[Rfam]
RNA: tRNA
Organism: Vairimorpha ceranae
RNA sequence: GUGACCUUAGUGUAGUGGUUAUCACGUUUGUCUAACACGCAGAAGGUCCCCAGUUCGAGCCUGGGAGGUCACA
Numbered sequence: 001g002u003g004a005c006c007u008u009a010g011u012g013u014a015g016u017g018g019u020u021a022u023c024a025c026g027u028u029u030g031u032c033u034a035a036c037a038c039g040c041a042g043a044a045g046g047u048c049c050c051c052a053g054u055u056c057g058a059g060c061c062u063g064g065g066a067g068g069u070c071a072c073a
Base pairs, nucleotide, nucleotide: 001072002071003070004069005068006067007066010025011024012023027043028042029041030040031039049065050064051063052062053061